[Rfam]
RNA sequence: GCUCUGGCUUAGUUUUGUGGUUGUUUCACGUUUUAUUAAAAAUGUUUGUCGCAACCCUACCGGGCUGUGGUACGAACCACGGGCCAUGUCUAGCGUUUUU
Numbered sequence: 001g002c003u004c005u006g007g008c009u010u011a012g013u014u015u016u017g018u019g020g021u022u023g024u025u026u027c028a029c030g031u032u033u034u035a036u037u038a039a040a041a042a043u044g045u046u047u048g049u050c051g052c053a054a055c056c057c058u059a060c061c062g063g064g065c066u067g068u069g070g071u072a073c074g075a076a077c078c079a080c081g082g083g084c085c086a087u088g089u090c091u092a093g094c095g096u097u098u099u100u
Stems, first nucleotide, its partner, number of pairs: 002095001004093004012084004017080004025076003
RNA: Vault RNA
Organism: Esox lucius